[Rfam]
RNA: BsrG
Organism: Paenisporosarcina sp. HGH0030
RNA sequence: AGGUAAUAGAAUAGGUACUCAAGGGUGGUUGGCUCACUCCCGUUAGAAAGGGGGUGGUGCCAUGUCAGUAUUCGAAGCAUUAAUGUUUGCAUUAUCGUUCGCAGCAUUGAUUGUGUCAAUUCUGUCUUUUAACCAUAAAAAAUAACCCAUCCUUGAGUUAGCCGCUCAGAUGGGUUAUUCCUACCAUUUUGUAGCCAAUCCCCUUGAUGGGAACCUGCUAUUACGUCGAUCGUUGGUGUUAGCGCACCAGCG
Numbered sequence: 001a002g003g004u005a006a007u008a009g010a011a012u013a014g015g016u017a018c019u020c021a022a023g024g025g026u027g028g029u030u031g032g033c034u035c036a037c038u039c040c041c042g043u044u045a046g047a048a049a050g051g052g053g054g055u056g057g058u059g060c061c062a063u064g065u066c067a068g069u070a071u072u073c074g075a076a077g078c079a080u081u082a083a084u085g086u087u088u089g090c091a092u093u094a095u096c097g098u099u100c101g102c103a104g105c106a107u108u109g110a111u112u113g114u115g116u117c118a119a120u121u122c123u124g125u126c127u128u129u130u131a132a133c134c135a136u137a138a139a140a141a142a143u144a145a146c147c148c149a150u151c152c153u154u155g156a157g158u159u160a161g162c163c164g165c166u167c168a169g170a171u172g173g174g175u176u177a178u179u180c181c182u183a184c185c186a187u188u189u190u191g192u193a194g195c196c197a198a199u200c201c202c203c204u205u206g207a208u209g210g211g212a213a214c215c216u217g218c219u220a221u222u223a224c225g226u227c228g229a230u231c232g233u234u235g236g237u238g239u240u241a242g243c244g245c246a247c248c249a250g251c252g
Stems, first nucleotide, its partner, number of pairs: 001226001003224003007220003011216001016198001018157008027147004034057008064126001066124003070120001077092001103116001167191003199212004231252009